[Rfam]
RNA sequence: CCUUCUAUUUAUUUGCUGCUAUAGUCUUUUCAAUGGUAUGAGCAGUUAUAUGCAUGGGAUAAAAUAACAUCAGACCAUUGUCAAUUGAGAUGGAGUAACCAUUUCAUCUCUCCUGCAUGCAUAUGUUAAAA
Numbered sequence: 001c002c003u004u005c006u007a008u009u010u011a012u013u014u015g016c017u018g019c020u021a022u023a024g025u026c027u028u029u030u031c032a033a034u035g036g037u038a039u040g041a042g043c044a045g046u047u048a049u050a051u052g053c054a055u056g057g058g059a060u061a062a063a064a065u066a067a068c069a070u071c072a073g074a075c076c077a078u079u080g081u082c083a084a085u086u087g088a089g090a091u092g093g094a095g096u097a098a099c100c101a102u103u104u105c106a107u108c109u110c111u112c113c114u115g116c117a118u119g120c121a122u123a124u125g126u127u128a129a130a131a
Base pairs, nucleotide, nucleotide: 003059004058005057006056007055008054015046016045017044018043019042020041022038023037025036026035070125073122076119077118079117080116081115087110088109089108090107091106092105093104094103095102096101